[Rfam]
RNA sequence: AUCUUUGUGCUUGGGGCAAUGACGCAGCUAGUGAGGUUCUAACCGAGGUGCAUCUAUUGAUGGUUGAAAUCUAUUUCCAAACCUUUCUUAGGCCUGGGUUUUAGCUCAAGCCCAGGUAAAGUGCAAUCUAGUUUCAAAAAUAGUUUU
Dot-bracket structure: ....................((.((.(((.....(((....)))..))))).))...............................(.((..((((((((((......))))))))))..)).)............((((....))))

The record is a 147-nucleotide RNA from Glycine max, which matches "U4 spliceosomal RNA" in Rfam. Lineage of the source: Eukaryota > Tracheophyta > Spermatophyta > Phaseoleae > Glycine subgen. Soja. Rfam's curators write: U4 small nuclear RNA (U4 snRNA) is a component of the major U2-dependent spliceosome. It scores 71 bits against the family's covariance model. It is annotated as a spliceosomal small nuclear RNA.